[Rfam]
RNA: sRNA-Xcc1
RNA sequence: GGCGGGACGAUAGGCCGAAUACAAGACCCGCAAGGGGAAUGAGGCCACGGCAGCUAGUGUGCCGAGUUGAGUCCCGCCCACCUCUA
Numbered sequence: 001g002g003c004g005g006g007a008c009g010a011u012a013g014g015c016c017g018a019a020u021a022c023a024a025g026a027c028c029c030g031c032a033a034g035g036g037g038a039a040u041g042a043g044g045c046c047a048c049g050g051c052a053g054c055u056a057g058u059g060u061g062c063c064g065a066g067u068u069g070a071g072u073c074c075c076g077c078c079c080a081c082c083u084c085u086a
Stems, first nucleotide, its partner, number of pairs: 001078007013046004018040001027036003048064005